RNA sequence: AUUCAAAAAGGGAAUGGGACUUCCCUAAAACCGCUUAAAAGCUGAUAGUUCCUACUGAAAC
Dot-bracket structure: .........[[[[..((((((]]]].......(((....)))....)))))).........
RNA: Fluoride riboswitch aptamer (crcB RNA motif)
Organism: Parabacteroides sp. PFB2-22